[Rfam]
RNA sequence: UCACAUCCACGCGGGAGCGCACGCCGAGUGCGCUGAGAGGACGGCUGGGGCCGUCGACCGUCCGAACCUGACCGGGUAAUGCCGUCGUAGGGAGAUGCUCAUGACCUCUG
Number, nucleotide and partner (000 for none) at each position: 001u000002c000003a000004c000005a000006u000007c097008c000009a000010c094011g061012c060013g059014g058015g000016a000017g033018c032019g031020c030021a029022c000023g000024c000025c000026g000027a000028g000029u021030g020031c019032g018033c017034u000035g000036a000037g000038a000039g000040g055041a054042c053043g052044g051045c000046u000047g000048g000049g000050g000051c044052c043053g042054u041055c040056g000057a000058c014059c013060g012061u011062c000063c000064g000065a000066a000067c091068c090069u089070g088071a000072c000073c084074g083075g082076g000077u000078a000079a000080u000081g000082c075083c074084g073085u000086c000087g000088u070089a069090g068091g067092g000093a000094g010095a000096u000097g007098c000099u000100c000101a000102u000103g000104a000105c000106c000107u000108c000109u000110g000
TPP riboswitch aptamer (THI element): a 110-nucleotide RNA from Mycobacterium noviomagense.